[Rfam]
RNA: MIR4371 microRNA precursor family
Organism: Glycine soja
RNA sequence: CCAUUAAGUGAUAACAUGACAGACAAAGUAUCACGUCAUCACACCCAAUCAGUGACACUUCAUCGCCAUAUCAUUAAAGGUGAUUAUGUGACAAUGACAUGUCGUGGUUGUGCGUGAUGACGUGAUACUUCAUUUAUCACAUCAUCAUUUAAUGGAA
Numbered sequence: 001c002c003a004u005u006a007a008g009u010g011a012u013a014a015c016a017u018g019a020c021a022g023a024c025a026a027a028g029u030a031u032c033a034c035g036u037c038a039u040c041a042c043a044c045c046c047a048a049u050c051a052g053u054g055a056c057a058c059u060u061c062a063u064c065g066c067c068a069u070a071u072c073a074u075u076a077a078a079g080g081u082g083a084u085u086a087u088g089u090g091a092c093a094a095u096g097a098c099a100u101g102u103c104g105u106g107g108u109u110g111u112g113c114g115u116g117a118u119g120a121c122g123u124g125a126u127a128c129u130u131c132a133u134u135u136a137u138c139a140c141a142u143c144a145u146c147a148u149u150u151a152a153u154g155g156a157a
Stems, first nucleotide, its partner, number of pairs: 001155012014142001017139003021135003026130017044112001046110001048108004054103004070087002073084002